Rfam assigns this 72-nucleotide sequence from Medicago truncatula to the family "MIR2629 microRNA precursor family".
RNA sequence: UGCCGAGAAAAACCUCGGUAGUUAACUGCAGUUGGUUUUGUGUUUCCUCUGCAGUUAACUACCGAUGGAUAU
Numbered sequence: 001u002g003c004c005g006a007g008a009a010a011a012a013c014c015u016c017g018g019u020a021g022u023u024a025a026c027u028g029c030a031g032u033u034g035g036u037u038u039u040g041u042g043u044u045u046c047c048u049c050u051g052c053a054g055u056u057a058a059c060u061a062c063c064g065a066u067g068g069a070u071a072u
Base pairs, nucleotide, nucleotide: 013067015065016064017063018062019061020060021059022058023057024056025055026054027053028052029051030050031049
Its family is annotated with miRNA-mediated post-transcriptional gene silencing and RISC complex in the Gene Ontology.